A member of the RNA family "SAM/SAH riboswitch aptamer", 49 nucleotides long.
Rfam's curators put it in the seed alignment.
[Rfam]
RNA sequence: GAAUUGCUACAACGGCUUCCUGACGUGGCGAUCUAUAUGAACUGGAGCA
Numbered sequence: 001g002a003a004u005u006g007c008u009a010c011a012a013c014g015g016c017u018u019c020c021u022g023a024c025g026u027g028g029c030g031a032u033c034u035a036u037a038u039g040a041a042c043u044g045g046a047g048c049a
Base pairs, nucleotide, nucleotide: 004031005030006029007028008027009026010025013022014021015048016047017046019045020044